[Rfam]
RNA sequence: UAGCCGGUGCAAGUCCGGCCGAGGUAGGGGCCAGACCGCCUCGUUGCUAGCAGGCACUUGGUGGUGAGAGCCUAAGGGUGAAGCCCUGCGAAAAGCCCGGAUGGGUGAAGCGAAACUGCAGGCCGUAACAUGA
Numbered sequence: 001u002a003g004c005c006g007g008u009g010c011a012a013g014u015c016c017g018g019c020c021g022a023g024g025u026a027g028g029g030g031c032c033a034g035a036c037c038g039c040c041u042c043g044u045u046g047c048u049a050g051c052a053g054g055c056a057c058u059u060g061g062u063g064g065u066g067a068g069a070g071c072c073u074a075a076g077g078g079u080g081a082a083g084c085c086c087u088g089c090g091a092a093a094a095g096c097c098c099g100g101a102u103g104g105g106u107g108a109a110g111c112g113a114a115a116c117u118g119c120a121g122g123c124c125g126u127a128a129c130a131u132g133a
Stems, first nucleotide, its partner, number of pairs: 020043005050089005055080005064071002096107001110126003
This 133-nucleotide sequence from Paenalicyclobacillus macrosporangiidus belongs to the Rfam family "Group II catalytic intron D1-D4-4". The source organism's lineage runs through Bacteria, Bacillati, Bacillota, Bacilli and Paenalicyclobacillus. Rfam describes the family as follows. Group II introns are found in rRNA, tRNA and mRNA of organelles in fungi, plants and protists, and also in mRNA in bacteria. The match comes from Rfam's covariance-model search (95 bits).